[Rfam]
A member of the RNA family "ylbH leader" from Fictibacillus aquaticus, 125 nucleotides long. Its family is annotated with regulation of gene expression in the Gene Ontology. NCBI's taxonomy places the organism under Bacteria, Bacillati, Bacillota, Caryophanales, Fictibacillus. This family is a putative regulatory RNA structure that is found upstream of the ylbH gene in B. subtilis and related low GC Gram-positive bacteria.

RNA sequence: AAUAAAAAAAGCCUGCAGCUUAUUAUCUGCAGGCUGCCUUACAGAUAGGCAAGCCUAUCUUUUAAGGCGAUGGGAGAGGAGAAACCGGAGGAAGAACUUAUGGGGAAAGUAAGUCUUCUCCGCGG
Numbered sequence: 001a002a003u004a005a006a007a008a009a010a011g012c013c014u015g016c017a018g019c020u021u022a023u024u025a026u027c028u029g030c031a032g033g034c035u036g037c038c039u040u041a042c043a044g045a046u047a048g049g050c051a052a053g054c055c056u057a058u059c060u061u062u063u064a065a066g067g068c069g070a071u072g073g074g075a076g077a078g079g080a081g082a083a084a085c086c087g088g089a090g091g092a093a094g095a096a097c098u099u100a101u102g103g104g105g106a107a108a109g110u111a112a113g114u115c116u117u118c119u120c121c122g123c124g125g
Stems, first nucleotide, its partner, number of pairs: 011034008035074001037072001039070001043060006086122004091118004096114005

The family's RNA type in Rfam is cis-regulatory leader.